Rfam assigns this 75-nucleotide RNA sequence from Pseudolycoriella hygida to the family "mir-1 microRNA precursor family".
The match comes from Rfam's covariance-model search (49 bits).
The literature on the family includes a 2001 paper in Cell by Ambros, "microRNAs: tiny regulators with great potential".
Its family is annotated with RISC complex and miRNA-mediated post-transcriptional gene silencing in the Gene Ontology.
This family represents the microRNA (miRNA) mir-1 family. miRNAs are transcribed as ~70nt precursors (modelled here) and subsequently processed by the Dicer enzyme to give a ~22nt product.
RNA sequence: CCAAGUGCUCCAUACUUCUUUACAUUCCAUAAGCUUAAAAUCACUAUUGAAUGCAAGGAAGCAUGGAACUUUCAA
Numbered sequence: 001c002c003a004a005g006u007g008c009u010c011c012a013u014a015c016u017u018c019u020u021u022a023c024a025u026u027c028c029a030u031a032a033g034c035u036u037a038a039a040a041u042c043a044c045u046a047u048u049g050a051a052u053g054c055a056a057g058g059a060a061g062c063a064u065g066g067a068a069c070u071u072u073c074a075a
Base pairs, nucleotide, nucleotide: 007069009067010066011065012064013063015061016060017059018058019057020056021055023053024052025051027049029047030046031045